[Rfam]
RNA sequence: UCUCAUGCUGUGAUGCUCUAAAGGAAAGCACUUUCUGUUAGAAAGAAGUGAAUGUGUUUUCCUUUAGAGAGUUGCCGUCUGAGA
Numbered sequence: 001u002c003u004c005a006u007g008c009u010g011u012g013a014u015g016c017u018c019u020a021a022a023g024g025a026a027a028g029c030a031c032u033u034u035c036u037g038u039u040a041g042a043a044a045g046a047a048g049u050g051a052a053u054g055u056g057u058u059u060u061c062c063u064u065u066a067g068a069g070a071g072u073u074g075c076c077g078u079c080u081g082a083g084a
Stems, first nucleotide, its partner, number of pairs: 001084005007078002010075005016069003020065012033052003
The family of this 84-nucleotide RNA from Aotus nancymaae is "mir-515 microRNA precursor family". The literature on the family includes a 2005 paper in Nat Genet by Bentwich et al., "Identification of hundreds of conserved and nonconserved human microRNAs". Its Rfam clan is "mir-290 clan". Its family is annotated with miRNA-mediated post-transcriptional gene silencing and RISC complex in the Gene Ontology. Rfam 15.1 lists 1,056 matches to the family in 27 species. The family's consensus secondary structure was predicted with RNAalifold.